[Rfam]
RNA: L31-Actinobacteria ribosomal protein leader
Organism: Pseudoscardovia suis
RNA sequence: AUGGUUCCGGUUCACGUCUGCCAUCGGGGCGGGCGACCCGGGCU
Numbered sequence: 001a002u003g004g005u006u007c008c009g010g011u012u013c014a015c016g017u018c019u020g021c022c023a024u025c026g027g028g029g030c031g032g033g034c035g036a037c038c039c040g041g042g043c044u
Stems, first nucleotide, its partner, number of pairs: 003044003007041004015035008